[Rfam]
RNA: Glycine riboswitch aptamer
Nucleotides: 124
Base pairs, nucleotide, nucleotide: 001122004119005118006117007116008115015032016031017030018029034108035107036106037104038103041102043100047095048094049093050092
Number, partner (000 for none) and nucleotide at each position: 001122c002000a003000a004119c005118u006117c007116u008115g009000g010000a011000a012000a013000g014000u015032g016031g017030a018029c019000g020000c021000c022000g023000u024000g025000g026000g027000g028000u029018g030017u031016c032015c033000c034108g035107c036106c037104g038103a039000c040000g041102g042000u043100g044000a045000a046000a047095g048094c049093c050092g051000c052000g053000u054000u055000c056000c057000c058000c059000g060000c061000c062000c063000g064000c065000a066000g067000c068000u069000c070000c071000c072000c073000g074000g075000a076000c077000u078000g079000c080000c081000g082000g083000c084000g085000g086000c087000g088000g089000c090000g091000c092050u093049g094048g095047u096000g097000a098000a099000g100043c101000u102041c103038u104037c105000a106036g107035g108034u109000c110000a111000a112000u113000g114000a115008c116007a117006g118005a119004g120000g121000g122001g123000g124000a